[Rfam]
RNA sequence: UGGCUAUAGAAUAAUUUAUUCUGUAGCCACUUUUGAGUUACGAUAAUUAUUACGUUAAUUUACAUGAUUAUAGUAACUCAUUAUUAAGUGAUUUAUUAUAAUGUCAUGAUAAAUAUCCUCAUGUGUUAUAGUAACAUAAUUAUCGUAAAUAUGUAUUGACAUUAUCAUAAAUUAGUAUAUAAAAUUAUCGUAAAUAGAGGUGGCUACAGACUAACUUAUUUUGUAGCUU
Numbered sequence: 001u002g003g004c005u006a007u008a009g010a011a012u013a014a015u016u017u018a019u020u021c022u023g024u025a026g027c028c029a030c031u032u033u034u035g036a037g038u039u040a041c042g043a044u045a046a047u048u049a050u051u052a053c054g055u056u057a058a059u060u061u062a063c064a065u066g067a068u069u070a071u072a073g074u075a076a077c078u079c080a081u082u083a084u085u086a087a088g089u090g091a092u093u094u095a096u097u098a099u100a101a102u103g104u105c106a107u108g109a110u111a112a113a114u115a116u117c118c119u120c121a122u123g124u125g126u127u128a129u130a131g132u133a134a135c136a137u138a139a140u141u142a143u144c145g146u147a148a149a150u151a152u153g154u155a156u157u158g159a160c161a162u163u164a165u166c167a168u169a170a171a172u173u174a175g176u177a178u179a180u181a182a183a184a185u186u187a188u189c190g191u192a193a194a195u196a197g198a199g200g201u202g203g204c205u206a207c208a209g210a211c212u213a214a215c216u217u218a219u220u221u222u223g224u225a226g227c228u229u
Stems, first nucleotide, its partner, number of pairs: 002228013016214003020210014038193011051179002054176009066166003070162002075156001081148004088143006094133011108118001
RNA: MIR6217 microRNA precursor family